[Rfam]
RNA: mir-146 microRNA precursor family
RNA sequence: UUGGCCACCUGGCACUGAGAACUGAAUUCCAUAGGCUGUGAGCUCUCGCGAAUGCCCUAUGGACUCAGUUCUGGUGCCCGGUGGUGCUGU
Numbered sequence: 001u002u003g004g005c006c007a008c009c010u011g012g013c014a015c016u017g018a019g020a021a022c023u024g025a026a027u028u029c030c031a032u033a034g035g036c037u038g039u040g041a042g043c044u045c046u047c048g049c050g051a052a053u054g055c056c057c058u059a060u061g062g063a064c065u066c067a068g069u070u071c072u073g074g075u076g077c078c079c080g081g082u083g084g085u086g087c088u089g090u
Base pairs, nucleotide, nucleotide: 008081009080011078012077013076018072019071020070021069022068023067024066025065034056035055036054
Dot-bracket structure: .......((.(((....((((((((........(((.................)))........))))))))...))).)).........